[Rfam]
RNA sequence: UUCCUCUGAUUUGUGGAAGGUGCUGAAAAGCUCGGUAGAGCGUGUGUUGUCAUCAGCUUCGUCUCUUUACCCUACGAGAUGGGAUUUAAAUAACGGCACGAAAUUU
Numbered sequence: 001u002u003c004c005u006c007u008g009a010u011u012u013g014u015g016g017a018a019g020g021u022g023c024u025g026a027a028a029a030g031c032u033c034g035g036u037a038g039a040g041c042g043u044g045u046g047u048u049g050u051c052a053u054c055a056g057c058u059u060c061g062u063c064u065c066u067u068u069a070c071c072c073u074a075c076g077a078g079a080u081g082g083g084a085u086u087u088a089a090a091u092a093a094c095g096g097c098a099c100g101a102a103a104u105u106u
Stems, first nucleotide, its partner, number of pairs: 043100007055087002058084003062079004

Description
The record is a 106-nucleotide RNA sequence from Triticum aestivum, which matches "Small nucleolar RNA snoR97" in Rfam. A search with the family's covariance model found it, with a score of 71 bits. A reference for the family is Marker et al. (2002), "Experimental RNomics: identification of 140 candidates for small non-messenger RNAs in the plant Arabidopsis thaliana", Curr Biol. The base pairs follow the family's consensus structure, which was predicted with WAR. The source organism's lineage runs through Eukaryota, Streptophyta, Petrosaviidae, Triticodae and Triticum. It is annotated as an H/ACA-box small nucleolar RNA.